[Rfam]
Annotation:
mir-317 microRNA precursor family: a 91-nucleotide RNA sequence from Anopheles darlingi. Rfam 15.1 lists 153 matches to the family in 144 species. On this family, see Stark et al., Genome Res 2007: "Systematic discovery and characterization of fly microRNAs using 12 Drosophila genomes".
RNA sequence: ACCCUCUGCCGCUGGGAUACACCUUGUGCUCGCUUUGCAAUUGAAAUACUCAAGUGAACACAUCUGGUGGUAUCUCAGUGGCCGGGCACUA
Number, nucleotide and partner (000 for none) at each position: 001a000002c000003c000004c000005u000006c000007u000008g082009c081010c080011g079012c078013u000014g000015g076016g074017a073018u000019a071020c070021a068022c067023c066024u000025u062026g061027u000028g059029c000030u057031c056032g000033c000034u000035u000036u000037g000038c000039a000040a000041u000042u000043g000044a000045a000046a000047u000048a000049c000050u000051c000052a000053a000054g000055u000056g031057a030058a000059c028060a000061c026062a025063u000064c000065u000066g023067g022068u021069g000070g020071u019072a000073u017074c016075u000076c015077a000078g012079u011080g010081g009082c008083c000084g000085g000086g000087c000088a000089c000090u000091a000